[Rfam]
RNA sequence: CGGCCCGAGGGGUGCUGCGACGGAGCCACGCUCCGCCACGCUCGGUCCGCGAUGCCGAGCAAGGGCGCCCUCCCGCA
Dot-bracket structure: .((.((((............((((((...))))))......)))).)).............................
About this RNA:
Shown here is a 77-nucleotide RNA sequence from Lysobacter enzymogenes, a member of the family "SAH (S-adenosyl-L-homocysteine) riboswitch aptamer". A reference for the family is Wang et al. (2008), "Riboswitches that sense S-adenosylhomocysteine and activate genes involved in coenzyme recycling", Mol Cell. The base pairs follow the family's consensus structure, which is taken from published work. The organism belongs to Lysobacter, within Bacteria.